The record is a 59-nucleotide RNA sequence from Candidatus Methylomirabilis lanthanidiphila, which matches "nhaA-I RNA" in Rfam.
A search with the family's covariance model found it, with a score of 48 bits.
NCBI's taxonomy places the organism under Bacteria, Bacteria candidate phyla, Methylomirabilota (SeqCode), Methylomirabilales (SeqCode), Methylomirabilis (SeqCode).

RNA sequence: GGGUCCGGAGAUAGCGUUCAGCUAUUUUCGGAGGACAAGGGGUGGUCGGGCCGCCAUCC
Numbered sequence: 001g002g003g004u005c006c007g008g009a010g011a012u013a014g015c016g017u018u019c020a021g022c023u024a025u026u027u028u029c030g031g032a033g034g035a036c037a038a039g040g041g042g043u044g045g046u047c048g049g050g051c052c053g054c055c056a057u058c059c
Stems, first nucleotide, its partner, number of pairs: 005031011040059007